[Rfam]
RNA sequence: AGAGGUUGCAGGUUUGAGGUCAUAGCAGAAGUGCUCACAGCGCAGCCCUGUCAGAUUCCAAUGAACCUGUGAAUUCUGCU
Numbered sequence: 001a002g003a004g005g006u007u008g009c010a011g012g013u014u015u016g017a018g019g020u021c022a023u024a025g026c027a028g029a030a031g032u033g034c035u036c037a038c039a040g041c042g043c044a045g046c047c048c049u050g051u052c053a054g055a056u057u058c059c060a061a062u063g064a065a066c067c068u069g070u071g072a073a074u075u076c077u078g079c080u
Stems, first nucleotide, its partner, number of pairs: 016048001018047003024080007031043003052069003056065003
RNA: Mammalian CPEB3 ribozyme